A member of the RNA family "Listeria sRNA rliD" from Thermolongibacillus altinsuensis, 306 nucleotides long. The family's consensus secondary structure was predicted with RNAalifold. On this family, see Mandin et al., Nucleic Acids Res 2007: "Identification of new noncoding RNAs in Listeria monocytogenes and prediction of mRNA targets". The organism belongs to Thermolongibacillus, within Bacteria. It is annotated as an antisense RNA.

RNA sequence: CAGUGAGCGGGAAAAAGUCAACAUUUUUUGGUUCUUUCGACGCUGUGGCCGUACUUAACACGACCGUGUCGCCGUAGCGAACUAACACGGCACCGUUGGCUUGUUUGGCUAGUUGACCGAUUUCAACGGUUAAUGGACGUCCAGCCCAGUCUAUAGAAAACACGUGCUUUUCUUGUUCCAUACAAACAAGUACUCCUCUCUAUGUACAAAUAGGAAAAAUGAUUGUUUUAUCAGUAUAGUCCAUUGUUAGUAUAAUCAAAUAUCGGCUUAAAUACUAAUAAAAAGCGGGAAUGCUCCCGCUUUUUA
Numbered sequence: 001c002a003g004u005g006a007g008c009g010g011g012a013a014a015a016a017g018u019c020a021a022c023a024u025u026u027u028u029u030g031g032u033u034c035u036u037u038c039g040a041c042g043c044u045g046u047g048g049c050c051g052u053a054c055u056u057a058a059c060a061c062g063a064c065c066g067u068g069u070c071g072c073c074g075u076a077g078c079g080a081a082c083u084a085a086c087a088c089g090g091c092a093c094c095g096u097u098g099g100c101u102u103g104u105u106u107g108g109c110u111a112g113u114u115g116a117c118c119g120a121u122u123u124c125a126a127c128g129g130u131u132a133a134u135g136g137a138c139g140u141c142c143a144g145c146c147c148a149g150u151c152u153a154u155a156g157a158a159a160a161c162a163c164g165u166g167c168u169u170u171u172c173u174u175g176u177u178c179c180a181u182a183c184a185a186a187c188a189a190g191u192a193c194u195c196c197u198c199u200c201u202a203u204g205u206a207c208a209a210a211u212a213g214g215a216a217a218a219a220u221g222a223u224u225g226u227u228u229u230a231u232c233a234g235u236a237u238a239g240u241c242c243a244u245u246g247u248u249a250g251u252a253u254a255a256u257c258a259a260a261u262a263u264c265g266g267c268u269u270a271a272a273u274a275c276u277a278a279u280a281a282a283a284a285g286c287g288g289g290a291a292u293g294c295u296c297c298c299g300c301u302u303u304u305u306a
Stems, first nucleotide, its partner, number of pairs: 003273002009268002014229005022221004027079001029077001033040002044068005050062003102212006109204001116203001122158003126154001128152002135145001165188002168185002234253003279306012